[Rfam]
RNA sequence: AUCGUUCAUCCCAAAAGGACGGAAGUAGGCAUUAGCCGAAGGAACGCACC
Dot-bracket structure: ..(((((.(((.....)))..[.....(((....)))....)))))]...
Numbered sequence: 001a002u003c004g005u006u007c008a009u010c011c012c013a014a015a016a017g018g019a020c021g022g023a024a025g026u027a028g029g030c031a032u033u034a035g036c037c038g039a040a041g042g043a044a045c046g047c048a049c050c
Stems, first nucleotide, its partner, number of pairs: 003046005009019003022047001028037003